[Rfam]
RNA sequence: UGGAAGUGAUGAAAUAGAGAUAAUUGGAUGUCUCUUUGAAUGGAGUGUGGGUGAGGAAUAGAGUCAAAUGGGGUGGGAGGAUGGGGAGUGUGUGUGUGUGCUUGUAUAGAAAAGGCUUUAAUGGGGGCACUGAUAAUGAGGUGCUGAUUCCGGAGUGCAUCUGAGGCAUGUUGUUAAAUUCUGGGGUCCUGCUUAUCAACAUUGCCGAUGAUUAAAGCCCAAGACAAGCUCACCAAGACAAGCCUAGGCAUCUUAAAUCUCUAACAGGUUCGUUAAUGAAAAUGAUCCUGUGAUCUGAUCCAA
Numbered sequence: 001u002g003g004a005a006g007u008g009a010u011g012a013a014a015u016a017g018a019g020a021u022a023a024u025u026g027g028a029u030g031u032c033u034c035u036u037u038g039a040a041u042g043g044a045g046u047g048u049g050g051g052u053g054a055g056g057a058a059u060a061g062a063g064u065c066a067a068a069u070g071g072g073g074u075g076g077g078a079g080g081a082u083g084g085g086g087a088g089u090g091u092g093u094g095u096g097u098g099u100g101c102u103u104g105u106a107u108a109g110a111a112a113a114g115g116c117u118u119u120a121a122u123g124g125g126g127g128c129a130c131u132g133a134u135a136a137u138g139a140g141g142u143g144c145u146g147a148u149u150c151c152g153g154a155g156u157g158c159a160u161c162u163g164a165g166g167c168a169u170g171u172u173g174u175u176a177a178a179u180u181c182u183g184g185g186g187u188c189c190u191g192c193u194u195a196u197c198a199a200c201a202u203u204g205c206c207g208a209u210g211a212u213u214a215a216a217g218c219c220c221a222a223g224a225c226a227a228g229c230u231c232a233c234c235a236a237g238a239c240a241a242g243c244c245u246a247g248g249c250a251u252c253u254u255a256a257a258u259c260u261c262u263a264a265c266a267g268g269u270u271c272g273u274u275a276a277u278g279a280a281a282a283u284g285a286u287c288c289u290g291u292g293a294u295c296u297g298a299u300c301c302a303a
Stems, first nucleotide, its partner, number of pairs: 001302004169201005175195002178190001179186002
This 303-nucleotide sequence from Odontophorus gujanensis belongs to the Rfam family "Small Cajal body-specific RNA 7". A search with the family's covariance model found it, with a score of 179 bits. Taxonomically the source falls in Odontophorus (Eukaryota, Archosauria, Galloanserae, Galliformes). Rfam links the family to the GO terms nucleolus and RNA processing. A reference for the family is Darzacq et al. (2002), "Cajal body-specific small nuclear RNAs: a novel class of 2'-O-methylation and pseudouridylation guide RNAs", EMBO J.